About this RNA
A member of the RNA family "Small nucleolar RNA R38" from Lactuca sativa, 82 nucleotides long. The organism belongs to Lactuca, within Eukaryota. A search with the family's covariance model found it, with a score of 52 bits.

[Rfam]
RNA sequence: GGAUGUGCAUGAAGAUAUCAUUUUUUUACACAGUUAUCCCUGUCUGAUUAACCUUGAUGUGUACAUGUGAUCUGACUCAUAC
Numbered sequence: 001g002g003a004u005g006u007g008c009a010u011g012a013a014g015a016u017a018u019c020a021u022u023u024u025u026u027u028a029c030a031c032a033g034u035u036a037u038c039c040c041u042g043u044c045u046g047a048u049u050a051a052c053c054u055u056g057a058u059g060u061g062u063a064c065a066u067g068u069g070a071u072c073u074g075a076c077u078c079a080u081a082c
Stems, first nucleotide, its partner, number of pairs: 001082001003080003007076001